permuted transfer-messenger RNA: a 208-nucleotide RNA from Meinhardsimonia xiamenensis.
The family's RNA type in Rfam is non-coding RNA gene.
RNA sequence: GGGCAUAAACGCGCGCGUAAUAAGCGGAUCGGACCCGGGGGCGGUACCCGGCGGCUCCACCAGAAACCUUCGUUGGAGGAACAUGGGGCCGAAACAGGAUCGACGAACGUGUAAAGGCGUGGCUUUGCCCCGGUGAGGUACCACCGUUAUCGGUCCACAACGCACAAUUGCCAACGACAAUCGUGCUCCGGUCGCUCUCGCCGCGUAA
Numbered sequence: 001g002g003g004c005a006u007a008a009a010c011g012c013g014c015g016c017g018u019a020a021u022a023a024g025c026g027g028a029u030c031g032g033a034c035c036c037g038g039g040g041g042c043g044g045u046a047c048c049c050g051g052c053g054g055c056u057c058c059a060c061c062a063g064a065a066a067c068c069u070u071c072g073u074u075g076g077a078g079g080a081a082c083a084u085g086g087g088g089c090c091g092a093a094a095c096a097g098g099a100u101c102g103a104c105g106a107a108c109g110u111g112u113a114a115a116g117g118c119g120u121g122g123c124u125u126u127g128c129c130c131c132g133g134u135g136a137g138g139u140a141c142c143a144c145c146g147u148u149a150u151c152g153g154u155c156c157a158c159a160a161c162g163c164a165c166a167a168u169u170g171c172c173a174a175c176g177a178c179a180a181u182c183g184u185g186c187u188c189c190g191g192u193c194g195c196u197c198u199c200g201c202c203g204c205g206u207a208a
Stems, first nucleotide, its partner, number of pairs: 001130005013120004025109002029106003035051005052091007131146004